[Rfam]
RNA sequence: UUAGAGGAUUUGGAUACUUCAACUUGUAUACUAAGAGGAUUUGGAUACUUCAACAUGUAUACUUAGAGGAUUUGAAUACUUCAACU
Numbered sequence: 001u002u003a004g005a006g007g008a009u010u011u012g013g014a015u016a017c018u019u020c021a022a023c024u025u026g027u028a029u030a031c032u033a034a035g036a037g038g039a040u041u042u043g044g045a046u047a048c049u050u051c052a053a054c055a056u057g058u059a060u061a062c063u064u065a066g067a068g069g070a071u072u073u074g075a076a077u078a079c080u081u082c083a084a085c086u
Stems, first nucleotide, its partner, number of pairs: 001084002004081003009076006017068003021064001025059004032053001035050003
MIR8024 microRNA precursor family: an 86-nucleotide RNA sequence from Solanum lycopersicum. A search with the family's covariance model found it, with a score of 68 bits. Rfam 15.1 lists 661 matches to the family in 8 species. Lineage of the source: Eukaryota > Viridiplantae > Streptophyta > Euphyllophyta > Solanum subgen. Lycopersicon. Its family is annotated with RISC complex and miRNA-mediated post-transcriptional gene silencing in the Gene Ontology. Pairs were carried over by alignment from the consensus structure, which was predicted with RNAalifold.